[Rfam]
RNA sequence: CUAGACUGAAAAUCCUUUGUGGCCUGUUUGGUGCUACUGGGGAGGUCUCUGGGCCUAGAGGAAGUUGAGUGUUAAGCUUAUUCCCCGCUUCACUGUGGUCGGGGGAUGAAACCCACGCUCCUACACUG
Numbered sequence: 001c002u003a004g005a006c007u008g009a010a011a012a013u014c015c016u017u018u019g020u021g022g023c024c025u026g027u028u029u030g031g032u033g034c035u036a037c038u039g040g041g042g043a044g045g046u047c048u049c050u051g052g053g054c055c056u057a058g059a060g061g062a063a064g065u066u067g068a069g070u071g072u073u074a075a076g077c078u079u080a081u082u083c084c085c086c087g088c089u090u091c092a093c094u095g096u097g098g099u100c101g102g103g104g105g106a107u108g109a110a111a112c113c114c115a116c117g118c119u120c121c122u123a124c125a126c127u128g
Stems, first nucleotide, its partner, number of pairs: 006051001008049002010046001013043004021035003067121001068119005078109005087099002
The record is a 128-nucleotide RNA sequence from Microcaecilia unicolor, which matches "Small nucleolar RNA ACA64" in Rfam. The family's RNA type in Rfam is H/ACA-box small nucleolar RNA. NCBI's taxonomy places the organism under Eukaryota, Opisthokonta, Teleostomi, Amphibia, Microcaecilia. Gene Ontology terms of the family: RNA processing and nucleolus. A reference for the family is Schattner et al. (2006), "A computational screen for mammalian pseudouridylation guide H/ACA RNAs", RNA. The family has 30 seed sequences and 9,537 matches in Rfam 15.1.